RNA sequence: CCCUGCAAAUAUAGAAUAUUUGGUUUUGGUCAUUGAUAUUUUGUUUUAAUCCUUGUAAAAUCAUUUCAUAUUGAAAUUGGUCCCUAUAAUAUUCAUUUUAGUCCUUAUUUUGAGGGACUAAAAUCAAAUAUUCUACAUAUUACAAGGACCAAAUCCAAUAUGUGUCAAUUUUACAAUGACUAAAACAAAAUAUCAAGGACCAAAUUCAGUUUGUUAGAGCCAAAA
Number, nucleotide and partner (000 for none) at each position: 001c000002c000003c000004u000005g000006c219007a000008a000009a000010u218011a000012u216013a215014g000015a000016a212017u000018a210019u209020u208021u000022g207023g206024u000025u204026u203027u202028g201029g200030u199031c198032a000033u196034u195035g000036a193037u192038a191039u190040u189041u188042u187043g186044u185045u184046u183047u182048a181049a000050u179051c178052c000053u176054u175055g174056u173057a172058a171059a170060a169061u168062c000063a000064u000065u164066u000067c000068a161069u160070a159071u158072u157073g156074a000075a000076a000077u152078u151079g150080g149081u148082c147083c146084c000085u000086a000087u142088a141089a140090u139091a138092u137093u000094c000095a000096u000097u000098u000099u000100a000101g000102u000103c000104c000105u000106u000107a124108u123109u122110u121111u120112g000113a000114g000115g000116g000117a000118c000119u000120a111121a110122a109123a108124u107125c000126a000127a000128a000129u000130a000131u000132u000133c000134u000135a000136c000137a092138u091139a090140u089141u088142a087143c000144a000145a000146g083147g082148a081149c080150c079151a078152a077153a000154u000155c000156c073157a072158a071159u070160a069161u068162g000163u000164g065165u000166c000167a000168a061169u060170u059171u058172u057173a056174c055175a054176a053177u000178g051179a050180c000181u048182a047183a046184a045185a044186c043187a042188a041189a040190a039191u038192a037193u036194c000195a034196a033197g000198g031199a030200c029201c028202a027203a026204a025205u000206u023207c022208a020209g019210u018211u000212u016213g000214u000215u013216a012217g000218a010219g006220c000221c000222a000223a000224a000225a000